[Rfam]
RNA sequence: CGAGUUGGCCAGACAAUCGCUGCUUUAUCCUUUACUUUCGGGUAGGGAGAUAGAGGGGAGGAAAGUCCGGGCUCCAACGAGCAGGGUGCCAGGUAACGCCUGGGGGGCGCAAGCCCACGACAAGUGCAGCAGAGAGAAGACCGCCGAUGGCUGGCAACAGCACAGGUAAGGGUGAAAGGGUGCGGUAAGAGCGCACCGGGCGGCUGGUAACAGUUCGCAGCAGGGUAAACUCCACCCGGAGCAAGACCAAAUAGGGUUUCAUAUGGCGUGGCUCGCGUUGAAACCGGGUAGGUUGCUUGAGCCUUAGAGCGAUUUAAGGCCUAGACGAAUGAUUGUCCACGACAAAACCCGGCUUAUCGGCCAACUCAAAUG
Numbered sequence: 001c002g003a004g005u006u007g008g009c010c011a012g013a014c015a016a017u018c019g020c021u022g023c024u025u026u027a028u029c030c031u032u033u034a035c036u037u038u039c040g041g042g043u044a045g046g047g048a049g050a051u052a053g054a055g056g057g058g059a060g061g062a063a064a065g066u067c068c069g070g071g072c073u074c075c076a077a078c079g080a081g082c083a084g085g086g087u088g089c090c091a092g093g094u095a096a097c098g099c100c101u102g103g104g105g106g107g108c109g110c111a112a113g114c115c116c117a118c119g120a121c122a123a124g125u126g127c128a129g130c131a132g133a134g135a136g137a138a139g140a141c142c143g144c145c146g147a148u149g150g151c152u153g154g155c156a157a158c159a160g161c162a163c164a165g166g167u168a169a170g171g172g173u174g175a176a177a178g179g180g181u182g183c184g185g186u187a188a189g190a191g192c193g194c195a196c197c198g199g200g201c202g203g204c205u206g207g208u209a210a211c212a213g214u215u216c217g218c219a220g221c222a223g224g225g226u227a228a229a230c231u232c233c234a235c236c237c238g239g240a241g242c243a244a245g246a247c248c249a250a251a252u253a254g255g256g257u258u259u260c261a262u263a264u265g266g267c268g269u270g271g272c273u274c275g276c277g278u279u280g281a282a283a284c285c286g287g288g289u290a291g292g293u294u295g296c297u298u299g300a301g302c303c304u305u306a307g308a309g310c311g312a313u314u315u316a317a318g319g320c321c322u323a324g325a326c327g328a329a330u331g332a333u334u335g336u337c338c339a340c341g342a343c344a345a346a347a348c349c350c351g352g353c354u355u356a357u358c359g360g361c362c363a364a365c366u367c368a369a370a371u372g
Stems, first nucleotide, its partner, number of pairs: 002367009011357001012337007020058002023055006063355003067352005072241004079274004084237005089103005104118001105116004119232002124230002126226002141171002143167003148164002150161004179197006198221001200218004204213003245294004255285006265279005301320008
The record is a 372-nucleotide sequence from Thalassomonas actiniarum, which matches "Bacterial RNase P class A" in Rfam.
It scores 323 bits against the family's covariance model.
It is annotated as a ribozyme.
About the family: Ribonuclease P (RNase P) is a ubiquitous endoribonuclease, found in archaea, bacteria and eukarya as well as chloroplasts and mitochondria.
On this family, see Beauregard et al., RNA Biol 2013: "Identification and characterization of small RNAs in Yersinia pestis".
The base pairs follow the family's consensus structure, which is taken from published work.